[Rfam]
RNA: RNase MRP
Organism: Massariosphaeria phaeospora
RNA sequence: UCCUCGCUCGAAGAAUCGCGCAUCGAAGCUCACACACAGAGUGUCUCCCUCGCCGAAAGACAUCUCGCGACAAGCUUUGGGAGAAAGUCCCCGGACAUCGGUUCCUCGUGAGCCGCACUUUCAGCAACGAACCGCCAUAGAAGCGCGGCCUCGCCCACUCACUUCUUGUCUUCUUUACCCCGCUUGCACUCUUUGUUUUCUCACACCCGAUUCCGCUCGUGGGGGGCUCGCACCUGGACGAUGAUAUGAGUCCGCUAGCUCCGAAGCUUGCGGUUUGAAGGCUUGGGCCGGCAUUGAGGAGGGAUUGGGAGAUUCGGAGGUGGUACGGUGGGCUGAGGGUUUUCUCGUCCAAUUUGUGGUUAUGCGAUUGCUCUCCGCCGCUUCAGGUAUAUGAGGCGGUACGGAGAGUAACUCAAUGGGGCUUAUUCUCGGUGCGAGG
Dot-bracket structure: .((((((((((..((((((...(((((((.........(.(((((.............)))))).........)))))).)...[[[.[[[[.....................................................................................(((...(.((.(...((((.......((((....................................................................................................((....))...))))..)))).).)).).)))........................)))))).((((((..........................)))))).........]]]]]]]....)))).))))))